[Rfam]
The family of this 112-nucleotide sequence from Chlorocebus sabaeus is "Y RNA".
Rfam's curators write: Y RNAs are components of the Ro ribonucleoprotein particle (Ro RNP), in association with Ro60 and La proteins.
A reference for the family is Chen et al. (2000), "Ro ribonucleoproteins contribute to the resistance of Deinococcus radiodurans to ultraviolet irradiation", Genes Dev.
The base pairs follow the family's consensus structure, which is taken from published work.
Rfam classes the family as a non-coding RNA gene.
RNA sequence: GGCUGGUCCAGGUGGAGUGAGUUAUCUCAGCUGAUUGUUCACAAGCAGUUACUGAUGGAACUCCUGAUUCUGUUCUUUUCCCACUUCUCACUACUGCAUUUGUCGAGUUAAA
Numbered sequence: 001g002g003c004u005g006g007u008c009c010a011g012g013u014g015g016a017g018u019g020a021g022u023u024a025u026c027u028c029a030g031c032u033g034a035u036u037g038u039u040c041a042c043a044a045g046c047a048g049u050u051a052c053u054g055a056u057g058g059a060a061c062u063c064c065u066g067a068u069u070c071u072g073u074u075c076u077u078u079u080c081c082c083a084c085u086u087c088u089c090a091c092u093a094c095u096g097c098a099u100u101u102g103u104c105g106a107g108u109u110a111a112a
Stems, first nucleotide, its partner, number of pairs: 002108003006104001008102001010101002014097001016092006044074002047071002